[Rfam]
RNA sequence: UGAUGAGUCAGGCUACUGGUUAUAUUCCAGGGCUUAUCCAGUUCUGAGUAUAACCAAAGCCUGGCUGAAUG
Numbered sequence: 001u002g003a004u005g006a007g008u009c010a011g012g013c014u015a016c017u018g019g020u021u022a023u024a025u026u027c028c029a030g031g032g033c034u035u036a037u038c039c040a041g042u043u044c045u046g047a048g049u050a051u052a053a054c055c056a057a058a059g060c061c062u063g064g065c066u067g068a069a070u071g
Stems, first nucleotide, its partner, number of pairs: 007065003011061004017056008027041001030038002